A member of the RNA family "Bacterial small subunit ribosomal RNA" from Gemella sp. zg-570, 353 nucleotides of a longer RNA.
Lineage of the source: Bacteria > Bacillota > Bacilli > Caryophanales > Gemella.
RNA sequence: GGCGUAAAGCGCGCGCAGGUGGUUUAAUAAGUCUGAUGUGAAAGCCCACGGCUCAACCGUGGAAGGUCAUUGGAAACUGUUAAACUUGAGUGCAGGAGAGAAAAGUGGAAUUCCUAGUGUAGCGGUGAAAUGCGUAGAGAUUAGGAGGAACACCAGUGGCGAAGGCGGCUUUUUGGCCUGCAACUGACACUGAGGCGCGAAAGCGUGGGGAGCAAACAGGAUUAGAUACCCUGGUAGUCCACGCCGUAAACGAUGAGUGCUAAGUGUUGGAGUCAAAAGACUUCAGUGCUGCAGCUAAGGCAUUAAGCACUCCGCCUGGGGAGUACGGUCGCAAGACUGAAACUCAAAGGAAU
Dot-bracket structure: (((.....(.((((.(.(((.(((((((.(((((((((.......((((((.....)))))).....)))))))..)))))))))...((((((((...((((((((...((((((((...(((......)))......))))))))...).......((....)).)))))))..))))).)))...))))..))))....((((((...((...((((.........))))...))))))))..........((((((..((((((((((((....))))))))))))...((....)).....)))))))))).(((......((((....))))....)))........